[Rfam]
RNA sequence: CUUCCAGUGGGAAGCGAAGACCCUGUGGAGCUUUGCUGCAGUCUAUCGUAGUUGUGGGGGUCCAGACAUGAAGCGUAGGUAGAAGACGUUACAGAGUCGCGUGCGCCAGCACGUCGACCAGUCAACCAUGGGACACUACCUGUCUGGAACCCUGCGACUCACCUCCAUCGUGGGGAACAGCGAUAGCUGGGCAGCUUAGCUGGGGCGGCAUCCCUCUGAUAGAGAAUCAGAGGGGUCCAAAGGUAGGCUCAACCCGGUCAGAAAUCGGGUGUAGAGGACAAGGCCAAAAGCCUGCCUGACUGGAACCUGAACGUUACGGGUUCUAGGCGCGGAAGCGUGGCCUAGCGAACCCCUAUGUGCCAAGCACUUGUGAGGCCUAGGUAUGACAGAAAAGUUACCCCAGGGAUAACUGGAUUGUCUGCGGCGCGAGUUCAUAUCGACCCGCAGGUUUGUUACUUCGAUGUCGGCUCUCCGUAUCCUGGCUGUGCAACAGCAGCCAAGGGUGGGGGUGUUCACCCAUUAAAACGGAUCGUGAGCUGGGUUUAGAUCGGCGUGAGCCAGAUCGGUUGCUAUCUGCUGGAAGUGUCAUUA
Numbered sequence: 001c002u003u004c005c006a007g008u009g010g011g012a013a014g015c016g017a018a019g020a021c022c023c024u025g026u027g028g029a030g031c032u033u034u035g036c037u038g039c040a041g042u043c044u045a046u047c048g049u050a051g052u053u054g055u056g057g058g059g060g061u062c063c064a065g066a067c068a069u070g071a072a073g074c075g076u077a078g079g080u081a082g083a084a085g086a087c088g089u090u091a092c093a094g095a096g097u098c099g100c101g102u103g104c105g106c107c108a109g110c111a112c113g114u115c116g117a118c119c120a121g122u123c124a125a126c127c128a129u130g131g132g133a134c135a136c137u138a139c140c141u142g143u144c145u146g147g148a149a150c151c152c153u154g155c156g157a158c159u160c161a162c163c164u165c166c167a168u169c170g171u172g173g174g175g176a177a178c179a180g181c182g183a184u185a186g187c188u189g190g191g192c193a194g195c196u197u198a199g200c201u202g203g204g205g206c207g208g209c210a211u212c213c214c215u216c217u218g219a220u221a222g223a224g225a226a227u228c229a230g231a232g233g234g235g236u237c238c239a240a241a242g243g244u245a246g247g248c249u250c251a252a253c254c255c256g257g258u259c260a261g262a263a264a265u266c267g268g269g270u271g272u273a274g275a276g277g278a279c280a281a282g283g284c285c286a287a288a289a290g291c292c293u294g295c296c297u298g299a300c301u302g303g304a305a306c307c308u309g310a311a312c313g314u315u316a317c318g319g320g321u322u323c324u325a326g327g328c329g330c331g332g333a334a335g336c337g338u339g340g341c342c343u344a345g346c347g348a349a350c351c352c353c354u355a356u357g358u359g360c361c362a363a364g365c366a367c368u369u370g371u372g373a374g375g376c377c378u379a380g381g382u383a384u385g386a387c388a389g390a391a392a393a394g395u396u397a398c399c400c401c402a403g404g405g406a407u408a409a410c411u412g413g414a415u416u417g418u419c420u421g422c423g424g425c426g427c428g429a430g431u432u433c434a435u436a437u438c439g440a441c442c443c444g445c446a447g448g449u450u451u452g453u454u455a456c457u458u459c460g461a462u463g464u465c466g467g468c469u470c471u472c473c474g475u476a477u478c479c480u481g482g483c484u485g486u487g488c489a490a491c492a493g494c495a496g497c498c499a500a501g502g503g504u505g506g507g508g509g510u511g512u513u514c515a516c517c518c519a520u521u522a523a524a525a526c527g528g529a530u531c532g533u534g535a536g537c538u539g540g541g542u543u544u545a546g547a548u549c550g551g552c553g554u555g556a557g558c559c560a561g562a563u564c565g566g567u568u569g570c571u572a573u574c575u576g577c578u579g580g581a582a583g584u585g586u587c588a589u590u591a
Stems, first nucleotide, its partner, number of pairs: 001583008010575003014570002022404004027400002029396005035195004043186006051158009061148008078140005085123003100113005162175004198211001199209003212234006237340002243295006249275002252270006276285002300326009328337001330335001352381004357377001359376003413454003417451001418448007428438002465540001466538004470532001471529005478503002482497005506518003546564004550559003
RNA: Archaeal large subunit ribosomal RNA, nucleotides 2858 to 3448